[Rfam]
RNA sequence: UUGAAGAAUUUGAAGACUUCAACUUACAUACUUGAAGAAUUUAAAGACUUCAUCUAGCAUACUUGGAGGUUUUGAACACUUUAUCU
Dot-bracket structure: .(((((..((((((..(((((...(.(.....(((((..........)))))....).)....)))))..))))))..)))))...
Numbered sequence: 001u002u003g004a005a006g007a008a009u010u011u012g013a014a015g016a017c018u019u020c021a022a023c024u025u026a027c028a029u030a031c032u033u034g035a036a037g038a039a040u041u042u043a044a045a046g047a048c049u050u051c052a053u054c055u056a057g058c059a060u061a062c063u064u065g066g067a068g069g070u071u072u073u074g075a076a077c078a079c080u081u082u083a084u085c086u
Stems, first nucleotide, its partner, number of pairs: 002083005009076006017068005025059001027057001033052005
Record summary:
The family of this 86-nucleotide sequence from Solanum lycopersicum is "MIR8024 microRNA precursor family". Rfam links the family to the GO terms miRNA-mediated post-transcriptional gene silencing and RISC complex. A search with the family's covariance model found it, with a score of 74 bits. The family has 2 seed sequences and 661 matches in Rfam 15.1. The organism belongs to Solanum subgen. Lycopersicon, within Eukaryota.